[Rfam]
A member of the RNA family "Small Cajal body-specific RNA 7" from Eubucco bourcierii, 317 nucleotides long. Gene Ontology terms of the family: RNA processing and nucleolus. The source organism's lineage runs through Eukaryota, Archosauria, Theropoda, Coelurosauria and Eubucco. Rfam classes the family as a small Cajal body RNA.
RNA sequence: UGGAAGUGAUGAAAUAGAGAUAAUUGGAUGUGCCUUUGAGUGGAGUGUGUAUGCUCACUGGGGUUUAAACCCAGUUGGACUGGGGGUGGAGGGUGGGGAACGUGUGUGUGGUGCAGGUGUGGGAAAGGCUUUGAAUGGGGGCACUGAUGGUGCAGUGCUGCUUCCGGAGUGCAUCUGAGGCAUGUUGUGAAACUGGGGUGCUGCUUACAACACUGCCGAUGAUUAAAGCCCAAAAGAAGCCCACCAGGACAAGCCUGGGGCAUCCUACAUCUCUGACAGGCUCACCAAUGAAAGUGUGACCCUGUGAGCUGAUCCAA
Numbered sequence: 001u002g003g004a005a006g007u008g009a010u011g012a013a014a015u016a017g018a019g020a021u022a023a024u025u026g027g028a029u030g031u032g033c034c035u036u037u038g039a040g041u042g043g044a045g046u047g048u049g050u051a052u053g054c055u056c057a058c059u060g061g062g063g064u065u066u067a068a069a070c071c072c073a074g075u076u077g078g079a080c081u082g083g084g085g086g087u088g089g090a091g092g093g094u095g096g097g098g099a100a101c102g103u104g105u106g107u108g109u110g111g112u113g114c115a116g117g118u119g120u121g122g123g124a125a126a127g128g129c130u131u132u133g134a135a136u137g138g139g140g141g142c143a144c145u146g147a148u149g150g151u152g153c154a155g156u157g158c159u160g161c162u163u164c165c166g167g168a169g170u171g172c173a174u175c176u177g178a179g180g181c182a183u184g185u186u187g188u189g190a191a192a193c194u195g196g197g198g199u200g201c202u203g204c205u206u207a208c209a210a211c212a213c214u215g216c217c218g219a220u221g222a223u224u225a226a227a228g229c230c231c232a233a234a235a236g237a238a239g240c241c242c243a244c245c246a247g248g249a250c251a252a253g254c255c256u257g258g259g260g261c262a263u264c265c266u267a268c269a270u271c272u273c274u275g276a277c278a279g280g281c282u283c284a285c286c287a288a289u290g291a292a293a294g295u296g297u298g299a300c301c302c303u304g305u306g307a308g309c310u311g312a313u314c315c316a317a
Base pairs, nucleotide, nucleotide: 001316002315003314004313183212184211185210186209187208188207189206190205192202194200195199